The family of this 34-nucleotide RNA is "DUF805b RNA". It is one of the family's seed sequences.
RNA sequence: AAGGCGAAACCGAAAAGCCUGAAUAGAAUAGGAA
Numbered sequence: 001a002a003g004g005c006g007a008a009a010c011c012g013a014a015a016a017g018c019c020u021g022a023a024u025a026g027a028a029u030a031g032g033a034a
Base pairs, nucleotide, nucleotide: 002020003019004018005017010032011031